RNA: Guanidine-I riboswitch aptamer
RNA sequence: UGAAAAGUCCUCUAGGGUUCCGCGGCACUUUUGCUGGUCUGGUCCGAGAGAGGGCGCACAGGAAUUCCUGUGUACACGGAGGGACAAAAACCCGGGAGAU
Numbered sequence: 001u002g003a004a005a006a007g008u009c010c011u012c013u014a015g016g017g018u019u020c021c022g023c024g025g026c027a028c029u030u031u032u033g034c035u036g037g038u039c040u041g042g043u044c045c046g047a048g049a050g051a052g053g054g055c056g057c058a059c060a061g062g063a064a065u066u067c068c069u070g071u072g073u074a075c076a077c078g079g080a081g082g083g084a085c086a087a088a089a090a091c092c093c094g095g096g097a098g099a100u
Stems, first nucleotide, its partner, number of pairs: 007055006015045002020042002022039001023036005056073007075095001077098001081093003